[Rfam]
RNA: speF leader
Organism: Mesorhizobium zhangyense
RNA sequence: UGCCGGUUGUCCAAAAACCGGGGUUACUGAAGAGGCACACCCUCAUUGCCGGCAGUGCGGAACGGGUCUCCCAAUCCAAGCCAAGGCAGACAAAGCGAACCGAAGCCGGGCAAGGCUAGGUUCACCGCCGCGUGACGCACGCUCAUGGU
Number, nucleotide and partner (000 for none) at each position: 001u023002g000003c021004c020005g019006g018007u017008u016009g000010u000011c000012c000013a000014a000015a000016a008017a007018c006019c005020g004021g003022g000023g001024u000025u000026a000027c000028u000029g000030a000031a000032g000033a000034g050035g049036c048037a047038c000039a000040c000041c000042c000043u000044c000045a000046u000047u037048g036049c035050c034051g000052g000053c000054a000055g000056u000057g128058c127059g126060g000061a000062a000063c000064g000065g000066g000067u000068c000069u000070c000071c000072c000073a000074a000075u000076c000077c000078a000079a000080g000081c089082c000083a000084a000085g000086g000087c000088a000089g081090a000091c000092a000093a000094a000095g000096c000097g000098a000099a000100c110101c109102g000103a000104a000105g000106c000107c000108g000109g101110g100111c000112a000113a000114g000115g000116c000117u000118a000119g000120g000121u000122u000123c000124a000125c000126c059127g058128c057129c000130g000131c000132g000133u000134g000135a000136c000137g000138c000139a000140c000141g000142c000143u000144c000145a000146u000147g000148g000149u000